Description:
Fluoride riboswitch aptamer (crcB RNA motif): a 67-nucleotide RNA from Fulvimonas soli. On this family, see Baker et al., Science 2012: "Widespread genetic switches and toxicity resistance proteins for fluoride". It scores 41 bits against the family's covariance model. Pairs were carried over by alignment from the consensus structure, which is taken from published work.

RNA sequence: UCGCGGCGGGGAGAUGGCAUGCCUCCCGUCGCCGAACCGCCGCAAGGCUGAUGAUGCCUGUCACGUG
Numbered sequence: 001u002c003g004c005g006g007c008g009g010g011g012a013g014a015u016g017g018c019a020u021g022c023c024u025c026c027c028g029u030c031g032c033c034g035a036a037c038c039g040c041c042g043c044a045a046g047g048c049u050g051a052u053g054a055u056g057c058c059u060g061u062c063a064c065g066u067g
Base pairs, nucleotide, nucleotide: 010026011025012024013023016058017057018056019055020054039048040047041046